[Rfam]
RNA sequence: CUCUUAUUCAGAGUGGUGGAGAUACAUAGGAUCGAUGAAGCCACGGCAACCCCUGACAAGGAAGGUGCCAACCUGAGCGAAGCUGUUUUGACAGCGUGAUCGAACAAUAAGAG
Numbered sequence: 001c002u003c004u005u006a007u008u009c010a011g012a013g014u015g016g017u018g019g020a021g022a023u024a025c026a027u028a029g030g031a032u033c034g035a036u037g038a039a040g041c042c043a044c045g046g047c048a049a050c051c052c053c054u055g056a057c058a059a060g061g062a063a064g065g066u067g068c069c070a071a072c073c074u075g076a077g078c079g080a081a082g083c084u085g086u087u088u089u090g091a092c093a094g095c096g097u098g099a100u101c102g103a104a105c106a107a108u109a110a111g112a113g
Base pairs, nucleotide, nucleotide: 001113002112003111004110005109006108007107008106013044014043015042016041017040021033022032023031027077030074045069046068047067048066050065051064052061053060054059078102079101080100
Overview:
The record is a 113-nucleotide sequence from bacterium 1xD42-87, which matches "SAM riboswitch aptamer (S box leader)" in Rfam. The base pairs follow the family's consensus structure, which is taken from published work. The match comes from Rfam's covariance-model search (69 bits).